This 582-nucleotide sequence belongs to the Rfam family "ROOL RNA".
RNA sequence: UCAAAAGUGAAGAUACUGUAAUAUCCCAGUGAAGAUGGUUUGCUCAACCUGCUGGGGUAUCUGGAAUGAAGCUCGGGGCUAAGAGAAAGGAUACUUUCUUACAGCUGGCCGCAUCGAAGUAGUAAUACUAGAUGAAGGGUGCAAUUCCUGAAAGUAACAGAUGGCACACAUCAUUGUGCAAUAUAGUCCAGAAUACAUAUCGGUGGAAGAAUAGAGGGUUACUUGAAUAGAGUGCCUGAAUCUUAGUUAGGUAUAUAUUGGCUUUAUAUAUAAACCUAAGAAUAGCCAAUAAUCCACUCUGUCGUGAAGCGAAGAAAUUCGUGUAUAAGAUAUGGAAGAAGAUUCUCUUAGUAGCCUAGAGACAGGUUCUGAGUCAGGAGAAAUAAGAUCACAGAACAAGUGCUGAAGAGUUGGGUGAAAAGUGUGGGUAAUCAAUCCCACCAGAGCUUCGUGAUGAAAGUCUAGGGAAGAGAUGCAAGGAAUUGCUAACCUUGCACAGCCUCUUUUCUCUCUGUAGGAUAACAAUAUUUUUGCAAUGAUGAUGUAGGGUGAAUAAAAGCCCAUUACAGUGUUUUCACUUUU
Numbered sequence: 001u002c003a004a005a006a007g008u009g010a011a012g013a014u015a016c017u018g019u020a021a022u023a024u025c026c027c028a029g030u031g032a033a034g035a036u037g038g039u040u041u042g043c044u045c046a047a048c049c050u051g052c053u054g055g056g057g058u059a060u061c062u063g064g065a066a067u068g069a070a071g072c073u074c075g076g077g078g079c080u081a082a083g084a085g086a087a088a089g090g091a092u093a094c095u096u097u098c099u100u101a102c103a104g105c106u107g108g109c110c111g112c113a114u115c116g117a118a119g120u121a122g123u124a125a126u127a128c129u130a131g132a133u134g135a136a137g138g139g140u141g142c143a144a145u146u147c148c149u150g151a152a153a154g155u156a157a158c159a160g161a162u163g164g165c166a167c168a169c170a171u172c173a174u175u176g177u178g179c180a181a182u183a184u185a186g187u188c189c190a191g192a193a194u195a196c197a198u199a200u201c202g203g204u205g206g207a208a209g210a211a212u213a214g215a216g217g218g219u220u221a222c223u224u225g226a227a228u229a230g231a232g233u234g235c236c237u238g239a240a241u242c243u244u245a246g247u248u249a250g251g252u253a254u255a256u257a258u259u260g261g262c263u264u265u266a267u268a269u270a271u272a273a274a275c276c277u278a279a280g281a282a283u284a285g286c287c288a289a290u291a292a293u294c295c296a297c298u299c300u301g302u303c304g305u306g307a308a309g310c311g312a313a314g315a316a317a318u319u320c321g322u323g324u325a326u327a328a329g330a331u332a333u334g335g336a337a338g339a340a341g342a343u344u345c346u347c348u349u350a351g352u353a354g355c356c357u358a359g360a361g362a363c364a365g366g367u368u369c370u371g372a373g374u375c376a377g378g379a380g381a382a383a384u385a386a387g388a389u390c391a392c393a394g395a396a397c398a399a400g401u402g403c404u405g406a407a408g409a410g411u412u413g414g415g416u417g418a419a420a421a422g423u424g425u426g427g428g429u430a431a432u433c434a435a436u437c438c439c440a441c442c443a444g445a446g447c448u449u450c451g452u453g454a455u456g457a458a459a460g461u462c463u464a465g466g467g468a469a470g471a472g473a474u475g476c477a478a479g480g481a482a483u484u485g486c487u488a489a490c491c492u493u494g495c496a497c498a499g500c501c502u503c504u505u506u507u508c509u510c511u512c513u514g515u516a517g518g519a520u521a522a523c524a525a526u527a528u529u530u531u532u533g534c535a536a537u538g539a540u541g542a543u544g545u546a547g548g549g550u551g552a553a554u555a556a557a558a559g560c561c562c563a564u565u566a567c568a569g570u571g572u573u574u575u576c577a578c579u580u581u582u
Stems, first nucleotide, its partner, number of pairs: 007579001011575003017569001021565001025056005037049004058163006074111003077106003083100007112134004118129004137149003141145001175536001181529001187525001189518001191345004196334006202298006221233004241281006251271007259288004299365005309322005348421001354416006402500004427439002443513003446462001453461001465510001466508005472502001477493004547562004
Rfam's curators write: Firmicutes, Fusobacteria (1 example), Tenericutes (1 example). Pairs were carried over by alignment from the consensus structure, which is taken from published work. By type it is a small RNA.